[Rfam]
RNA sequence: UGCAGAGUAAAAGCCUGUGCGUCAAGUGCCAGCCCGACGGGGAGUUGCGGGCCGGACGAAGAAGCACUCCGCUUCGCGGUACAGGCUUUGCAUCCCGCUGCU
Number, nucleotide and partner (000 for none) at each position: 001u000002g101003c100004a099005g098006a000007g000008u000009a000010a089011a088012a087013g086014c085015c084016u083017g082018u081019g080020c078021g077022u076023c000024a000025a000026g057027u056028g000029c055030c054031a000032g052033c051034c050035c049036g048037a000038c000039g000040g095041g094042g093043a000044g091045u000046u000047g000048c036049g035050g034051g033052c032053c000054g030055g029056a027057c026058g000059a000060a000061g075062a074063a073064g072065c000066a000067c000068u000069c000070c000071g000072c064073u063074u062075c061076g022077c021078g020079g000080u019081a018082c017083a016084g015085g014086c013087u012088u011089u010090g000091c044092a000093u042094c041095c040096c000097g000098c005099u004100g003101c002102u000
RNA: THF (Tetrahydrofolate) riboswitch aptamer
Organism: Gemmiger sp. An194